[Rfam]
RNA sequence: AAUAAUGUCUUUUAUAAUAGACACCCAGAGUCACGAUUCGUCUUGGUUUUAGAGAUUCUGUUUCGACAGUUUUUUUAGGCGGUGGACGUAUAUAGUUUACUUAAUCGUUUACUAUACGGUGGAGUACUAAUACUAUUUCACUGUCGUGCUCGCGGUUGAUCUUAGAUAAAUAUAUUUCUUUUUCAUAAAGAAAGUGAGUGGAUCUUCCCUGGAAGUACGAAUAAUGUACUUAUGAUUAGAUUCUCUUCACGCACAUAC
Numbered sequence: 001a002a003u004a005a006u007g008u009c010u011u012u013u014a015u016a017a018u019a020g021a022c023a024c025c026c027a028g029a030g031u032c033a034c035g036a037u038u039c040g041u042c043u044u045g046g047u048u049u050u051a052g053a054g055a056u057u058c059u060g061u062u063u064c065g066a067c068a069g070u071u072u073u074u075u076u077a078g079g080c081g082g083u084g085g086a087c088g089u090a091u092a093u094a095g096u097u098u099a100c101u102u103a104a105u106c107g108u109u110u111a112c113u114a115u116a117c118g119g120u121g122g123a124g125u126a127c128u129a130a131u132a133c134u135a136u137u138u139c140a141c142u143g144u145c146g147u148g149c150u151c152g153c154g155g156u157u158g159a160u161c162u163u164a165g166a167u168a169a170a171u172a173u174a175u176u177u178c179u180u181u182u183u184c185a186u187a188a189a190g191a192a193a194g195u196g197a198g199u200g201g202a203u204c205u206u207c208c209c210u211g212g213a214a215g216u217a218c219g220a221a222u223a224a225u226g227u228a229c230u231u232a233u234g235a236u237u238a239g240a241u242u243c244u245c246u247u248c249a250c251g252c253a254c255a256u257a258c
Stems, first nucleotide, its partner, number of pairs: 019162003022158002025155002033147004039088005048079008058069004091116006099108002117143010175193007194250004198245001200243006213231007
The record is a 258-nucleotide RNA sequence from Saccharomyces cerevisiae, which matches "Small nucleolar RNA snR11" in Rfam. For this family Rfam cites "A yeast small nuclear RNA is required for normal processing of pre-ribosomal RNA" (Tollervey, EMBO J, 1987). The family's consensus secondary structure was predicted with WAR. Its Rfam clan is "SNORA3 clan".